[Rfam]
RNA sequence: AUAAAAGUCGCCUAGGGUUCCGCCAUCUGACGAUGGGCCUGGUCCGAGAGGUGGCGCAUGAAGUUUAUUCAUGACACGGAAGGAUAAAAGCCUGGGAGAA
Numbered sequence: 001a002u003a004a005a006a007g008u009c010g011c012c013u014a015g016g017g018u019u020c021c022g023c024c025a026u027c028u029g030a031c032g033a034u035g036g037g038c039c040u041g042g043u044c045c046g047a048g049a050g051g052u053g054g055c056g057c058a059u060g061a062a063g064u065u066u067a068u069u070c071a072u073g074a075c076a077c078g079g080a081a082g083g084a085u086a087a088a089a090g091c092c093u094g095g096g097a098g099a100a
Base pairs, nucleotide, nucleotide: 007055008054009053010052011051012050015045016044020042021041022039023036024035025034026033027032057073058072059071060070061069062068075095077098081093082092083091
RNA: Guanidine-I riboswitch aptamer
Organism: Salinicoccus roseus